[Rfam]
A member of the RNA family "Pseudomonas sRNA P9" from Acidithiobacillus ferrianus, 81 nucleotides long. The family's consensus secondary structure was predicted with RNAalifold. The literature on the family includes a 2006 paper in Nucleic Acids Res by Livny et al., "Identification of 17 Pseudomonas aeruginosa sRNAs and prediction of sRNA-encoding genes in 10 diverse pathogens using the bioinformatic tool sRNAPredict2". About the family: This small RNA (sRNA) was computationally identified in the genome of the opportunistic pathogen Pseudomonas aeruginosa and its expression verified by northern blot analysis. P9 appears to be conserved in several Pseudomonas species in addition to Bordetella spp. In both Pseudomonas and Bordetella spp P9 appears to be located upstream of a predicted threonine dehydratase gene. P9 has a predicted Rho independent terminator at the 3' end but the function of P9 is unknown. The match comes from Rfam's covariance-model search (51 bits). Rfam classes the family as a non-coding RNA gene.
Nucleotides: 081
Base pairs, nucleotide, nucleotide: 012030013029014028015027016026017025058079059078060077061076062075063074064073065072
Number, partner (000 for none) and nucleotide at each position: 001000c002000u003000g004000a005000u006000u007000a008000u009000u010000c011000g012030c013029a014028c015027u016026a017025u018000u019000c020000c021000a022000a023000g024000a025017g026016u027015g028014g029013u030012g031000g032000g033000u034000u035000a036000g037000c038000g039000c040000a041000c042000g043000u044000c045000g046000u047000a048000a049000u050000a051000a052000a053000a054000a055000a056000g057000c058079a059078a060077c061076c062075c063074g064073c065072c066000c067000c068000a069000u070000g071000a072065g073064g074063c075062g076061g077060g078059u079058u080000u081000u